[Rfam]
RNA sequence: GGUUGAUGAGGAUUUAUCUUUUAAGGCUUGUUUCUCAAAACAUUCGCAGUGGCCGCCUAAAGCUUUCGCCUUUCGCCAGGCUUGAGAGCUUCUGAUGUUCUUAUCCUUCCUUGGAUGUCUGAAACC
Numbered sequence: 001g002g003u004u005g006a007u008g009a010g011g012a013u014u015u016a017u018c019u020u021u022u023a024a025g026g027c028u029u030g031u032u033u034c035u036c037a038a039a040a041c042a043u044u045c046g047c048a049g050u051g052g053c054c055g056c057c058u059a060a061a062g063c064u065u066u067c068g069c070c071u072u073u074c075g076c077c078a079g080g081c082u083u084g085a086g087a088g089c090u091u092c093u094g095a096u097g098u099u100c101u102u103a104u105c106c107u108u109c110c111u112u113g114g115a116u117g118u119c120u121g122a123a124a125c126c
Stems, first nucleotide, its partner, number of pairs: 001126004062089006
RNA: Small nucleolar RNA SNORD14
Organism: Brassica oleracea